Rfam assigns this 106-nucleotide sequence from Lactuca sativa to the family "Small nucleolar RNA Z161/Z228". It scores 54 bits against the family's covariance model.

RNA sequence: AAUCCAAAUGACGAUUUAGGAUUACAUCUCACGACGGUCGUCUGAAAUCACGUCUUUUUGUAGGACUGUGAUAAAUUGAUGUAUUGAUCCAUUUUUUCUGAUGGUU
Numbered sequence: 001a002a003u004c005c006a007a008a009u010g011a012c013g014a015u016u017u018a019g020g021a022u023u024a025c026a027u028c029u030c031a032c033g034a035c036g037g038u039c040g041u042c043u044g045a046a047a048u049c050a051c052g053u054c055u056u057u058u059u060g061u062a063g064g065a066c067u068g069u070g071a072u073a074a075a076u077u078g079a080u081g082u083a084u085u086g087a088u089c090c091a092u093u094u095u096u097u098c099u100g101a102u103g104g105u106u
Base pairs, nucleotide, nucleotide: 001106002105003104004103048071049070050069051068052067

Source information
The organism belongs to Lactuca, within Eukaryota. By type it is a C/D-box small nucleolar RNA.